[Rfam]
Shown here is a 304-nucleotide sequence from Sulfurisphaera tokodaii, a member of the family "Archaeal RNase P". By type it is a ribozyme.

RNA sequence: GGGAGCCCUAGAUUGGGCUACGGGUUGCUGAGGAAACACCGGCCUCCAGGUCCCAGGGAGACCCCGUUAAGGGGUAGGGGUAGCACCCCUAGCAACUACACAGAAACGAGACUGGCAUGAUAGCAGAUGAAGAUGAUUUGAUGGUAACCCAAGUAAUUGGGUUACCUAAAUGAGAGCUAUCAUGCCAGUUGAAACGGUAGUCUCUCCUGGAGCAAGUGGGGAAAAGAUGAGAAGGGACCCGAUUUUCCCCGAGACGCUAAGUCAAAUCCCAAAAAUACAGAAGCCGGGUUAUGCUAGGGCUCCC
Numbered sequence: 001g002g003g004a005g006c007c008c009u010a011g012a013u014u015g016g017g018c019u020a021c022g023g024g025u026u027g028c029u030g031a032g033g034a035a036a037c038a039c040c041g042g043c044c045u046c047c048a049g050g051u052c053c054c055a056g057g058g059a060g061a062c063c064c065c066g067u068u069a070a071g072g073g074g075u076a077g078g079g080g081u082a083g084c085a086c087c088c089c090u091a092g093c094a095a096c097u098a099c100a101c102a103g104a105a106a107c108g109a110g111a112c113u114g115g116c117a118u119g120a121u122a123g124c125a126g127a128u129g130a131a132g133a134u135g136a137u138u139u140g141a142u143g144g145u146a147a148c149c150c151a152a153g154u155a156a157u158u159g160g161g162u163u164a165c166c167u168a169a170a171u172g173a174g175a176g177c178u179a180u181c182a183u184g185c186c187a188g189u190u191g192a193a194a195c196g197g198u199a200g201u202c203u204c205u206c207c208u209g210g211a212g213c214a215a216g217u218g219g220g221g222a223a224a225a226g227a228u229g230a231g232a233a234g235g236g237a238c239c240c241g242a243u244u245u246u247c248c249c250c251g252a253g254a255c256g257c258u259a260a261g262u263c264a265a266a267u268c269c270c271a272a273a274a275a276u277a278c279a280g281a282a283g284c285c286g287g288g289u290u291a292u293g294c295u296a297g298g299g300c301u302c303c304c
Base pairs, nucleotide, nucleotide: 001304002303003302005300006299007298008297009296010295011294013272014271015270016269017268021030022029023028035290036289037288039287040286041285042284043283044212045211046210047209049239050238051237052236053235054234056208057207058206059205060204061075062074063073064072065071076090077089078088079087080086091203092202096200097199098198099197112188113187114186115185116184117183118182119181120180121179122178138170139169216255217254221247222246223245224244225243
Annotation:
Its Rfam clan is "RNaseP clan". Rfam's curators write: Ribonuclease P (RNase P) is a ubiquitous endoribonuclease, found in archaea, bacteria and eukarya as well as chloroplasts and mitochondria. Its best characterised activity is the generation of mature 5'-ends of tRNAs by cleaving the 5'-leader elements of precursor-tRNAs. Cellular RNase Ps are ribonucleoproteins.